[Rfam]
RNA sequence: AAACCGGCUACUGAAUUUACUUAUCUAUACGUGUUUCUGCAAAAAUUUAGAAAAAGCUGGCAACAGUAAUGCCACCAUGUUACAAGCGCUUUCAAGACAUCAGAGUCAUUAAGGUCCCUGAAAAUGGCUACAAAU
Numbered sequence: 001a002a003a004c005c006g007g008c009u010a011c012u013g014a015a016u017u018u019a020c021u022u023a024u025c026u027a028u029a030c031g032u033g034u035u036u037c038u039g040c041a042a043a044a045a046u047u048u049a050g051a052a053a054a055a056g057c058u059g060g061c062a063a064c065a066g067u068a069a070u071g072c073c074a075c076c077a078u079g080u081u082a083c084a085a086g087c088g089c090u091u092u093c094a095a096g097a098c099a100u101c102a103g104a105g106u107c108a109u110u111a112a113g114g115u116c117c118c119u120g121a122a123a124a125u126g127g128c129u130a131c132a133a134a135u
Stems, first nucleotide, its partner, number of pairs: 004060004016043003020039001071128004088115005094109001096107003
RNA: Small nucleolar RNA SNORA33
Organism: Fukomys damarensis